[Rfam]
This 58-nucleotide sequence from Ictalurus punctatus belongs to the Rfam family "mir-24 microRNA precursor family". Rfam links the family to the GO terms RISC complex and miRNA-mediated post-transcriptional gene silencing. A reference for the family is Lagos-Quintana et al. (2001), "Identification of novel genes coding for small expressed RNAs", Science. This family represents the microRNA (miRNA) mir-24 family. miRNAs are transcribed as ~70nt precursors (modelled here) and subsequently processed by the Dicer enzyme to give a ~22nt product. In this case the mature sequence comes from the 3' arm of the precursor. The extents of the hairpin precursors are not generally known and are estimated based on hairpin prediction. Pairs were carried over by alignment from the consensus structure, which was predicted with RNAalifold.
RNA sequence: UGCCUACUGAGCUGAUUACAGUACUGUGCAAACACUGGCUCAGUUCAGCAGGAACAGG
Numbered sequence: 001u002g003c004c005u006a007c008u009g010a011g012c013u014g015a016u017u018a019c020a021g022u023a024c025u026g027u028g029c030a031a032a033c034a035c036u037g038g039c040u041c042a043g044u045u046c047a048g049c050a051g052g053a054a055c056a057g058g
Stems, first nucleotide, its partner, number of pairs: 001054001003052003007048009019037004